The record is a 276-nucleotide RNA from Mycoplasmopsis citelli, which matches "Bacterial RNase P class B" in Rfam.
[Rfam]
RNA sequence: UACAUCGGCCAGCAGCUGCUUUAUAAAAGUAGAGGAAAGUCCGUGCUAACACCACCUGUAAUGGUGAUAAAGUUCACGUUAGGUCCAAUAAACCUAAGCUUAGACGACAAGUGCCACAGAGACGAGUAAAGUGAAACGAGGUAAACUCCGUGAGUUAGAAACCCAAAUUAUGGUAGGGGAAUUUUGACUAGGAAUUAAAACGAUGUCAAAAAAUGUUAAUACAUUAGAUAAAUUGCUGGCACUGCUAAAAUGCAGUACAGAACACGGCUUAUAGAU
Numbered sequence: 001u002a003c004a005u006c007g008g009c010c011a012g013c014a015g016c017u018g019c020u021u022u023a024u025a026a027a028a029g030u031a032g033a034g035g036a037a038a039g040u041c042c043g044u045g046c047u048a049a050c051a052c053c054a055c056c057u058g059u060a061a062u063g064g065u066g067a068u069a070a071a072g073u074u075c076a077c078g079u080u081a082g083g084u085c086c087a088a089u090a091a092a093c094c095u096a097a098g099c100u101u102a103g104a105c106g107a108c109a110a111g112u113g114c115c116a117c118a119g120a121g122a123c124g125a126g127u128a129a130a131g132u133g134a135a136a137c138g139a140g141g142u143a144a145a146c147u148c149c150g151u152g153a154g155u156u157a158g159a160a161a162c163c164c165a166a167a168u169u170a171u172g173g174u175a176g177g178g179g180a181a182u183u184u185u186g187a188c189u190a191g192g193a194a195u196u197a198a199a200a201c202g203a204u205g206u207c208a209a210a211a212a213a214u215g216u217u218a219a220u221a222c223a224u225u226a227g228a229u230a231a232a233u234u235g236c237u238g239g240c241a242c243u244g245c246u247a248a249a250a251u252g253c254a255g256u257a258c259a260g261a262a263c264a265c266g267g268c269u270u271a272u273a274g275a276u
Stems, first nucleotide, its partner, number of pairs: 004276003007272001008240007016032006037270003041267005046158005051068001053066004074153005079097006098105001099103001106148002111146002113142003162178003182211007212225005242255004

Record summary
The organism belongs to Mycoplasmopsis, within Bacteria. Pairs were carried over by alignment from the consensus structure, which is taken from published work.